[Rfam]
RNA: tRNA
RNA sequence: GUGUUCGUAGUGUAAUGGUUUUGCACGUAACACUGUGAAUGUUAAAGAGGUGGGUUCAAUUCCCCCCGAACACC
Numbered sequence: 001g002u003g004u005u006c007g008u009a010g011u012g013u014a015a016u017g018g019u020u021u022u023g024c025a026c027g028u029a030a031c032a033c034u035g036u037g038a039a040u041g042u043u044a045a046a047g048a049g050g051u052g053g054g055u056u057c058a059a060u061u062c063c064c065c066c067c068g069a070a071c072a073c074c
Base pairs, nucleotide, nucleotide: 001073002072003071004070005069006068007067010026011025012024013023028044029043030042031041032040050066052064053063054062